[Rfam]
RNA: Eukaryotic large subunit ribosomal RNA, nucleotides 1619 to 2107
RNA sequence: GGUAGUAGCAAGUAUUCAAAUGAGAACUUUGAAGACUGAAGUGGGGAAAGGUUCCGAGUGAACAGCAGUUGGACUCGGGUUAGUCGAUUCUAAGAGAUAGGGAAGCUCCGUUUAAAAUUUUGGGCAAUUUAUUUUUAAUAUUUUUGCCCUACCUAUCGAAAGAGAAACCGGUUAAAAUUCCGGUACCAGGAUUGUGGGUGAUGUAUUGCGGUAACGCAAAUGAACUUGGAGACGCCAGCAAGAACCCUGGAAAGAGUUUUCUUUUCUUUUUAACAGCUGUAUUAAACAUUUUUUCUGCGAAAGCGGGAAAGAGGACCUUGGAAUCAGAUUAUCUGGAGAAAAGGUUCAAAAGCUGGUAAAGCAGGUCAUUUUUUUGACUUGUCCGGAGUGUUCUUGAUGGCCCUUGAAAAUCCAAGGGAAAUAAUCAGCUUCACGCCUGGUCGUACUAAUAACCGCAGCAGGUCUCCAAGGUGAACAGCCUCUAGUUGA
Numbered sequence: 001g002g003u004a005g006u007a008g009c010a011a012g013u014a015u016u017c018a019a020a021u022g023a024g025a026a027c028u029u030u031g032a033a034g035a036c037u038g039a040a041g042u043g044g045g046g047a048a049a050g051g052u053u054c055c056g057a058g059u060g061a062a063c064a065g066c067a068g069u070u071g072g073a074c075u076c077g078g079g080u081u082a083g084u085c086g087a088u089u090c091u092a093a094g095a096g097a098u099a100g101g102g103a104a105g106c107u108c109c110g111u112u113u114a115a116a117a118u119u120u121u122g123g124g125c126a127a128u129u130u131a132u133u134u135u136u137a138a139u140a141u142u143u144u145u146g147c148c149c150u151a152c153c154u155a156u157c158g159a160a161a162g163a164g165a166a167a168c169c170g171g172u173u174a175a176a177a178u179u180c181c182g183g184u185a186c187c188a189g190g191a192u193u194g195u196g197g198g199u200g201a202u203g204u205a206u207u208g209c210g211g212u213a214a215c216g217c218a219a220a221u222g223a224a225c226u227u228g229g230a231g232a233c234g235c236c237a238g239c240a241a242g243a244a245c246c247c248u249g250g251a252a253a254g255a256g257u258u259u260u261c262u263u264u265u266c267u268u269u270u271u272a273a274c275a276g277c278u279g280u281a282u283u284a285a286a287c288a289u290u291u292u293u294u295c296u297g298c299g300a301a302a303g304c305g306g307g308a309a310a311g312a313g314g315a316c317c318u319u320g321g322a323a324u325c326a327g328a329u330u331a332u333c334u335g336g337a338g339a340a341a342a343g344g345u346u347c348a349a350a351a352g353c354u355g356g357u358a359a360a361g362c363a364g365g366u367c368a369u370u371u372u373u374u375u376g377a378c379u380u381g382u383c384c385g386g387a388g389u390g391u392u393c394u395u396g397a398u399g400g401c402c403c404u405u406g407a408a409a410a411u412c413c414a415a416g417g418g419a420a421a422u423a424a425u426c427a428g429c430u431u432c433a434c435g436c437c438u439g440g441u442c443g444u445a446c447u448a449a450u451a452a453c454c455g456c457a458g459c460a461g462g463u464c465u466c467c468a469a470g471g472u473g474a475a476c477a478g479c480c481u482c483u484a485g486u487u488g489a
Stems, first nucleotide, its partner, number of pairs: 015033006034487004043467004049447002054078006063071002085443003089163002094157002096112003100109003122150003167184005187439004193435005198429002207218004225416006234401004239396007247386003250270006274355005286345002289342009362381007453462002469481004